This 121-nucleotide sequence from Lactococcus cremoris belongs to the Rfam family "L17 ribosomal protein downstream element". Lineage of the source: Bacteria > Bacillati > Lactococcus > Lactococcus cremoris > Lactococcus cremoris subsp. cremoris. The base pairs follow the family's consensus structure, which is taken from published work.
RNA sequence: UGAGUGUUAUGAUGUUGGCGGGGGUUUCUGUGGGUGCAUGUGUUGAGUUGUGAUUGACUCUCUUUCGCAUCAGCCUUGCUUAUAGUCUAGCUCUGUCUGAUUAGAUUAAAUUUCUAAUCUG
Numbered sequence: 001u002g003a004g005u006g007u008u009a010u011g012a013u014g015u016u017g018g019c020g021g022g023g024g025u026u027u028c029u030g031u032g033g034g035u036g037c038a039u040g041u042g043u044u045g046a047g048u049u050g051u052g053a054u055u056g057a058c059u060c061u062c063u064u065u066c067g068c069a070u071c072a073g074c075c076u077u078g079c080u081u082a083u084a085g086u087c088u089a090g091c092u093c094u095g096u097c098u099g100a101u102u103a104g105a106u107u108a109a110a111u112u113u114c115u116a117a118u119c120u121g
Stems, first nucleotide, its partner, number of pairs: 002093004011087003017080006097121001099119007